[Rfam]
RNA: Small nucleolar RNA SNORD25
Organism: Durio zibethinus
RNA sequence: CAGAACAAUAAUGAGUUAUAACAAACCUAUAAUGAAUUGCGAAUAUGAUCGCAGAUAUUUAUGAACAUGUAAAGGAUUGUGUUCUC
Numbered sequence: 001c002a003g004a005a006c007a008a009u010a011a012u013g014a015g016u017u018a019u020a021a022c023a024a025a026c027c028u029a030u031a032a033u034g035a036a037u038u039g040c041g042a043a044u045a046u047g048a049u050c051g052c053a054g055a056u057a058u059u060u061a062u063g064a065a066c067a068u069g070u071a072a073a074g075g076a077u078u079g080u081g082u083u084c085u086c
Stems, first nucleotide, its partner, number of pairs: 002085005